The record is a 60-nucleotide RNA sequence from Streptomyces sp. Amel2xC10, which matches "msiK RNA" in Rfam. Pairs were carried over by alignment from the consensus structure, which is taken from published work. By type it is a cis-regulatory element. Lineage of the source: Bacteria > Actinomycetota > Actinomycetes > Kitasatosporales > Streptomyces. It scores 58 bits against the family's covariance model.

RNA sequence: CCACACCACCUUCCUACAACGGAUCGUCCGGCACGUUCCUGCCGGUAGAAGGGGGCCUCU
Numbered sequence: 001c002c003a004c005a006c007c008a009c010c011u012u013c014c015u016a017c018a019a020c021g022g023a024u025c026g027u028c029c030g031g032c033a034c035g036u037u038c039c040u041g042c043c044g045g046u047a048g049a050a051g052g053g054g055g056c057c058u059c060u
Stems, first nucleotide, its partner, number of pairs: 010052003014048003028045006